The family of this 92-nucleotide RNA from Vanessa tameamea is "mir-2788 microRNA precursor family". Rfam 15.1 lists 89 matches to the family in 88 species. It scores 96 bits against the family's covariance model. The organism belongs to Vanessa, within Eukaryota.
[Rfam]
RNA sequence: GAAGAAUGUCGCCGUAUUGCUGGGGUUUCCUAGCGGCAUGUGCCUUCUACCAUGCAAUGCCCUUGGAAAUCCCAAACGUGCAGGCGUCAAUU
Numbered sequence: 001g002a003a004g005a006a007u008g009u010c011g012c013c014g015u016a017u018u019g020c021u022g023g024g025g026u027u028u029c030c031u032a033g034c035g036g037c038a039u040g041u042g043c044c045u046u047c048u049a050c051c052a053u054g055c056a057a058u059g060c061c062c063u064u065g066g067a068a069a070u071c072c073c074a075a076a077c078g079u080g081c082a083g084g085c086g087u088c089a090a091u092u
Base pairs, nucleotide, nucleotide: 008088010086011085012084013083014081015080016079021074022073023072024071025070026069027068028067029066032063033062035061036060037059038058039057041056042055043054